A member of the RNA family "Glycine riboswitch aptamer" from Mangrovicoccus algicola, 87 nucleotides long. The organism belongs to Mangrovicoccus, within Bacteria. Rfam links the family to the GO term glycine biosynthetic process. The base pairs follow the family's consensus structure.
RNA sequence: AUAGCCCAGCCGGGAGAGCGCGGAUCAUCCGCCGCCGAAGGAGCAAUCGCCCCGAAAACUCUCAGGCAAACGGACCGGCUGGGGGUC
Numbered sequence: 001a002u003a004g005c006c007c008a009g010c011c012g013g014g015a016g017a018g019c020g021c022g023g024a025u026c027a028u029c030c031g032c033c034g035c036c037g038a039a040g041g042a043g044c045a046a047u048c049g050c051c052c053c054g055a056a057a058a059c060u061c062u063c064a065g066g067c068a069a070a071c072g073g074a075c076c077g078g079c080u081g082g083g084g085g086u087c
Stems, first nucleotide, its partner, number of pairs: 006082008020032004034067003037063002041061003047055002